The family of this 90-nucleotide RNA from Ameyamaea chiangmaiensis is "Glycine riboswitch aptamer". A reference for the family is Mandal et al. (2004), "A glycine-dependent riboswitch that uses cooperative binding to control gene expression", Science. Its family is annotated with glycine biosynthetic process in the Gene Ontology. Rfam's curators write: This family represents the bacterial glycine riboswitch. Glycine riboswitches usually consist of two metabolite-binding aptamers domains with similar structures in tandem. The aptamers cooperatively bind glycine to regulate the expression of downstream genes. In Bacillus subtilis, this riboswitch is found upstream of the gcvT operon which controls glycine degradation. It scores 64 bits against the family's covariance model.
RNA sequence: GGGCGUCGAUACGGGAGAGACCGGCCAUGUGCCGGCGCCGAAGGAGCAACCGCCCCGGAAACUCUCAGGCCAAAGGACCGGUCGGCAGAG
Number, nucleotide and partner (000 for none) at each position: 001g000002g000003g000004c000005g000006u085007c084008g083009a082010u081011a000012c080013g079014g078015g000016a000017g000018a000019g000020a000021c035022c034023g033024g032025c000026c000027a000028u000029g000030u000031g000032c024033c023034g022035g021036c000037g070038c069039c068040g066041a065042a000043g000044g064045a063046g062047c000048a000049a000050c058051c057052g000053c000054c000055c000056c000057g051058g050059a000060a000061a000062c046063u045064c044065u041066c040067a000068g039069g038070c037071c000072a000073a000074a000075g000076g000077a000078c014079c013080g012081g010082u009083c008084g007085g006086c000087a000088g000089a000090g000